[Rfam]
RNA sequence: CCAAAGGCUCUUUUCAGAGCCACUCACAGUAACACCAAAGAGGCUG
Number, nucleotide and partner (000 for none) at each position: 001c000002c000003a000004a000005a000006g021007g020008c019009u018010c017011u016012u000013u000014u000015c000016a011017g010018a009019g008020c007021c006022a000023c000024u000025c000026a000027c000028a000029g000030u000031a000032a000033c000034a000035c000036c000037a000038a000039a000040g000041a000042g000043g000044c000045u000046g000